[Rfam]
RNA sequence: GGUUUAAAGGGUCCGUAGGCGGGAUUAUAAGUCAGUGGUGAAAUCUUUCGGCUCAACCGGAAAAUUGCCAUUGAUACUGUAGUUCUUGAGUAUGCUCGAUGUAGGCGGAAUAUGUCAUGUAGCGGUGAAAUGCAUAGAUAUGACAUAGAACACCGAUAGCGAAGGCAGCUUACAAGCGCAUUACUGACGCUGAUGGACGAAAGCGUGGGGAGCGAACAGGAUUAGAUACCCUGGUAGUCCACGCCGUAAACGAUGAUCACUAGACAUUGGCGAUAUACUGUUCGGUGUCAAAGCGAAAGCAUUAAGUGAUCCACCUGGGGAGUACGCUCGCAAGAGUGAAACUCAAAGGAAU
Numbered sequence: 001g002g003u004u005u006a007a008a009g010g011g012u013c014c015g016u017a018g019g020c021g022g023g024a025u026u027a028u029a030a031g032u033c034a035g036u037g038g039u040g041a042a043a044u045c046u047u048u049c050g051g052c053u054c055a056a057c058c059g060g061a062a063a064a065u066u067g068c069c070a071u072u073g074a075u076a077c078u079g080u081a082g083u084u085c086u087u088g089a090g091u092a093u094g095c096u097c098g099a100u101g102u103a104g105g106c107g108g109a110a111u112a113u114g115u116c117a118u119g120u121a122g123c124g125g126u127g128a129a130a131u132g133c134a135u136a137g138a139u140a141u142g143a144c145a146u147a148g149a150a151c152a153c154c155g156a157u158a159g160c161g162a163a164g165g166c167a168g169c170u171u172a173c174a175a176g177c178g179c180a181u182u183a184c185u186g187a188c189g190c191u192g193a194u195g196g197a198c199g200a201a202a203g204c205g206u207g208g209g210g211a212g213c214g215a216a217c218a219g220g221a222u223u224a225g226a227u228a229c230c231c232u233g234g235u236a237g238u239c240c241a242c243g244c245c246g247u248a249a250a251c252g253a254u255g256a257u258c259a260c261u262a263g264a265c266a267u268u269g270g271c272g273a274u275a276u277a278c279u280g281u282u283c284g285g286u287g288u289c290a291a292a293g294c295g296a297a298a299g300c301a302u303u304a305a306g307u308g309a310u311c312c313a314c315c316u317g318g319g320g321a322g323u324a325c326g327c328u329c330g331c332a333a334g335a336g337u338g339a340a341a342c343u344c345a346a347a348g349g350a351a352u
Stems, first nucleotide, its partner, number of pairs: 001315003009312001011198004016192001018191003022085007030078002032074009046062006089185003092181004097176001100174007107151001111147008122133003159166002203244006212238002217233004255311006263289008273279001293300002317344003326337004
RNA: Bacterial small subunit ribosomal RNA, nucleotides 561 to 912
Organism: Cryomorphaceae bacterium 1068